[Rfam]
RNA sequence: CCGAAGGAAAGGAGGUGGUCCGAAGCAUGUAUGCACACCGGACGUCGGAGGUGGCUGCGGGCUAGUGGCCCGUCGCCCACUGAGUGCGGUGCCGGACCGGCGUGUGUGAGUUGCACGCAACCGGCCAGUUCAACGCAGUCACCCGACCCGCGAGUCGCCGGUACGUCCGGCCGGCCCUCCUGAGCGAGGACCAGACUCGCGGGUCGCCUGCA
Numbered sequence: 001c002c003g004a005a006g007g008a009a010a011g012g013a014g015g016u017g018g019u020c021c022g023a024a025g026c027a028u029g030u031a032u033g034c035a036c037a038c039c040g041g042a043c044g045u046c047g048g049a050g051g052u053g054g055c056u057g058c059g060g061g062c063u064a065g066u067g068g069c070c071c072g073u074c075g076c077c078c079a080c081u082g083a084g085u086g087c088g089g090u091g092c093c094g095g096a097c098c099g100g101c102g103u104g105u106g107u108g109a110g111u112u113g114c115a116c117g118c119a120a121c122c123g124g125c126c127a128g129u130u131c132a133a134c135g136c137a138g139u140c141a142c143c144c145g146a147c148c149c150g151c152g153a154g155u156c157g158c159c160g161g162u163a164c165g166u167c168c169g170g171c172c173g174g175c176c177c178u179c180c181u182g183a184g185c186g187a188g189g190a191c192c193a194g195a196c197u198c199g200c201g202g203g204u205c206g207c208c209u210g211c212a
Stems, first nucleotide, its partner, number of pairs: 015058005060126004065121002068118002144206013157175006
Rfam assigns this 212-nucleotide RNA sequence from Actinobacteria bacterium OV320 to the family "Actinobacteria sRNA Ms_IGR-5".
It scores 80 bits against the family's covariance model.
The family's RNA type in Rfam is small RNA.
Pairs were carried over by alignment from the consensus structure.
For this family Rfam cites "Identification of small RNAs in Mycobacterium smegmatis using heterologous Hfq" (Li et al., RNA, 2013).
Lineage of the source: Bacteria > Bacillati > Actinomycetota > Actinomycetes.